[Rfam]
RNA sequence: GUAAAAUGGAUAGCGCUGGUACCCUUUGGGUAGACGAGGAAGAGGUGUAUCGAAAAGUCAGCGGAUACCUCUCGGCAACUCCGGUCGUUAGGAAAUGGCAAAACCUUUUGGCAACAAGAGGGACAAAUCUGUUACGGGAGUGAGA
Number, nucleotide and partner (000 for none) at each position: 001g000002u000003a000004a000005a000006a000007u000008g000009g000010a000011u000012a000013g000014c000015g000016c000017u000018g000019g000020u032021a031022c030023c029024c028025u000026u000027u000028g024029g023030g022031u021032a020033g000034a000035c000036g000037a000038g000039g000040a000041a072042g071043a070044g069045g068046u000047g000048u000049a000050u061051c000052g059053a058054a000055a000056a000057g000058u053059c052060a000061g050062c000063g000064g000065a000066u000067a000068c045069c044070u043071c042072u041073c087074g086075g085076c084077a000078a000079c000080u000081c000082c000083g000084g076085u075086c074087g073088u000089u000090a000091g000092g135093a000094a133095a132096u131097g130098g000099c000100a000101a000102a000103a000104c121105c120106u119107u118108u117109u116110g115111g000112c000113a000114a000115c110116a109117a108118g107119a106120g105121g104122g000123a000124c000125a000126a000127a000128u000129c000130u097131g096132u095133u094134a000135c092136g000137g000138g000139a000140g000141u000142g000143a000144g000145a000
Overview:
The record is a 145-nucleotide RNA from Megasphaera sp. UPII 135-E, which matches "glmS glucosamine-6-phosphate activated ribozyme aptamer" in Rfam. This entry contains a glucosamine-6-phosphate activated ribozyme that is found in the mRNA for GlmS. GlmS is an enzyme that uses fructose-6-phosphate and glutamine to generate glucosamine-6-phosphate. Taxonomically the source falls in Megasphaera (Bacteria, Bacillati, Bacillota, Negativicutes). The base pairs follow the family's consensus structure, which is taken from published work.